[Rfam]
RNA sequence: GUGAGGUGAUGACGAAGUUUAUCCAUUCUCUGAGUGCAGUGGCACUGCCCUCCUGCAGCACCCUGAUUCCUGUUCUAGGAUCUGGGUGCUGUGCAGCCUCCAGAGACCCUGCAGUCUCCGAGUGUCCUACUGGGGGCUGCUGGGGCCUGUGGCUGACUGCCUGCAGGAGUGAGGUGUGCUGGCAGGGUCGGAGCCCUUGUCUGUGGGGGCUCCGUCCCCACCAAGAUGAGGGAUGAUGUCUGAUCAC
Numbered sequence: 001g002u003g004a005g006g007u008g009a010u011g012a013c014g015a016a017g018u019u020u021a022u023c024c025a026u027u028c029u030c031u032g033a034g035u036g037c038a039g040u041g042g043c044a045c046u047g048c049c050c051u052c053c054u055g056c057a058g059c060a061c062c063c064u065g066a067u068u069c070c071u072g073u074u075c076u077a078g079g080a081u082c083u084g085g086g087u088g089c090u091g092u093g094c095a096g097c098c099u100c101c102a103g104a105g106a107c108c109c110u111g112c113a114g115u116c117u118c119c120g121a122g123u124g125u126c127c128u129a130c131u132g133g134g135g136g137c138u139g140c141u142g143g144g145g146c147c148u149g150u151g152g153c154u155g156a157c158u159g160c161c162u163g164c165a166g167g168a169g170u171g172a173g174g175u176g177u178g179c180u181g182g183c184a185g186g187g188u189c190g191g192a193g194c195c196c197u198u199g200u201c202u203g204u205g206g207g208g209g210c211u212c213c214g215u216c217c218c219c220a221c222c223a224a225g226a227u228g229a230g231g232g233a234u235g236a237u238g239u240c241u242g243a244u245c246a247c
Stems, first nucleotide, its partner, number of pairs: 010246003017239002020236001023232002026230003030225002034221002039183002042180001043178003048173001050171001051168007059088005065082001068080004093160004098155001107145001108143001111140009121131004185218003189214004194209005
Description:
The family of this 247-nucleotide RNA from Struthio camelus is "Small nucleolar RNA SNORD17". Rfam's curators write: The snoRNA HBI-43 belongs to the C/D family of snoRNAs, guiding 2'O-ribose methylation at position U3797 of the 28S rRNA. Pseudouridylation in position U3797 is predicted to be guided by the H/ACA snoRNA ACA48. It is annotated as a C/D-box small nucleolar RNA. NCBI's taxonomy places the organism under Eukaryota, Tetrapoda, Archelosauria, Struthio, Struthio camelus. The literature on the family includes a 2001 paper in EMBO J by Huttenhofer et al., "RNomics: an experimental approach that identifies 201 candidates for novel, small, non-messenger RNAs in mouse".